[Rfam]
RNA sequence: AUUUGUUGGAUGAGUGUGAGACAUUGGAUUGAUUUUGUUCAAUCUGAGCCCCACAUCAUCAGGGGUUUGU
Number, nucleotide and partner (000 for none) at each position: 001a000002u000003u000004u065005g000006u063007u062008g000009g060010a059011u058012g057013a056014g000015u055016g054017u053018g052019a000020g050021a000022c048023a000024u047025u046026g045027g044028a043029u042030u041031g040032a039033u000034u000035u000036u000037g000038u000039u032040c031041a030042a029043u028044c027045u026046g025047a024048g022049c000050c020051c000052c018053a017054c016055a015056u013057c012058a011059u010060c009061a000062g007063g006064g000065g004066u000067u000068u000069g000070u000

Overview
A member of the RNA family "MIR6151 microRNA precursor family" from Nicotiana sylvestris, 70 nucleotides long. The organism belongs to Nicotiana, within Eukaryota.